[Rfam]
RNA sequence: AAACAGUACUCUGGAGAGACCUGGCGCCGACCCUCGAACAAGGGACAUAUCGCGCAGCCCAGGCGCCGAAGGUGCAAACCCGCCACGCGGGGCAACUCUCAGGCAAAAGGACAGAGGGGCGGAA
Numbered sequence: 001a002a003a004c005a006g007u008a009c010u011c012u013g014g015a016g017a018g019a020c021c022u023g024g025c026g027c028c029g030a031c032c033c034u035c036g037a038a039c040a041a042g043g044g045a046c047a048u049a050u051c052g053c054g055c056a057g058c059c060c061a062g063g064c065g066c067c068g069a070a071g072g073u074g075c076a077a078a079c080c081c082g083c084c085a086c087g088c089g090g091g092g093c094a095a096c097u098c099u100c101a102g103g104c105a106a107a108a109g110g111a112c113a114g115a116g117g118g119g120c121g122g123a124a
Base pairs, nucleotide, nucleotide: 007118009116010115011114012113013112020063021062022061023060065104066103067102068100069099072098074096079090